[Rfam]
RNA: R2 RNA element
RNA sequence: ACAGAGCGAGAAAACUGUCAGCGGGGGGCCUGCUUACUUGGCACAACAUCAAAAUAGCCAUACAAAUCGCCCAAGAAUGGGUAGAGGUGGUGGUUUAGUACGUAGGUGUUGUUAACAGCGAAUAAUUGUACAUGCAAGUGCUCUAGACUGAAGCAGGUAGACCUCGUAUCUAUGAAGAUUCCCCAUCCUCAGCGGUA
Dot-bracket structure: .................................(..((.................))..).....(((((.............((((.((.......(((((....(((((....)))))......))))).(((.((........................)).)))..............))..)))).))))).
Numbered sequence: 001a002c003a004g005a006g007c008g009a010g011a012a013a014a015c016u017g018u019c020a021g022c023g024g025g026g027g028g029c030c031u032g033c034u035u036a037c038u039u040g041g042c043a044c045a046a047c048a049u050c051a052a053a054a055u056a057g058c059c060a061u062a063c064a065a066a067u068c069g070c071c072c073a074a075g076a077a078u079g080g081g082u083a084g085a086g087g088u089g090g091u092g093g094u095u096u097a098g099u100a101c102g103u104a105g106g107u108g109u110u111g112u113u114a115a116c117a118g119c120g121a122a123u124a125a126u127u128g129u130a131c132a133u134g135c136a137a138g139u140g141c142u143c144u145a146g147a148c149u150g151a152a153g154c155a156g157g158u159a160g161a162c163c164u165c166g167u168a169u170c171u172a173u174g175a176a177g178a179u180u181c182c183c184c185a186u187c188c189u190c191a192g193c194g195g196u197a
Stems, first nucleotide, its partner, number of pairs: 034060001037057002066196005084190004089184002098131005107120005133168003137164002